[Rfam]
RNA sequence: CUUCAGCCGGGUUCAAGUAAUCCAGGAUAGGCUGGAUGUCACACACACACCGCCUAUUUUUGAUUACUUGUUUCCGGAGGCGG
Numbered sequence: 001c002u003u004c005a006g007c008c009g010g011g012u013u014c015a016a017g018u019a020a021u022c023c024a025g026g027a028u029a030g031g032c033u034g035g036a037u038g039u040c041a042c043a044c045a046c047a048c049a050c051c052g053c054c055u056a057u058u059u060u061u062g063a064u065u066a067c068u069u070g071u072u073u074c075c076g077g078a079g080g081c082g083g
Stems, first nucleotide, its partner, number of pairs: 002082001004080001007077005014070009024060009